Rfam assigns this 109-nucleotide sequence from Microthlaspi erraticum to the family "MIR397 microRNA precursor family". A search with the family's covariance model found it, with a score of 86 bits. The literature on the family includes a 2009 paper in BMC Genomics by Mica et al., "High throughput approaches reveal splicing of primary microRNA transcripts and tissue specific expression of mature microRNAs in Vitis vinifera".

[Rfam]
RNA sequence: UGAAUGAACAUCAUUGAGUGCAGCGUUGAUGUAACUUCCUUUUUAUUUUCUUCUAUUGUUGGAUGGAUUAAAGGAAUUUAAACCAGCGUUGCGCUCAAUUAUGUUUUUC
Number, nucleotide and partner (000 for none) at each position: 001u000002g000003a000004a000005u000006g106007a105008a104009c103010a102011u101012c000013a099014u098015u097016g096017a095018g094019u093020g092021c091022a090023g089024c088025g087026u086027u085028g084029a000030u082031g000032u080033a000034a000035c000036u000037u000038c000039c000040u000041u000042u000043u000044u000045a000046u000047u000048u000049u000050c000051u000052u000053c000054u000055a000056u000057u000058g000059u000060u000061g000062g000063a000064u000065g000066g000067a000068u000069u000070a000071a000072a000073g000074g000075a000076a000077u000078u000079u000080a032081a000082a030083c000084c028085a027086g026087c025088g024089u023090u022091g021092c020093g019094c018095u017096c016097a015098a014099u013100u000101a011102u010103g009104u008105u007106u006107u000108u000109c000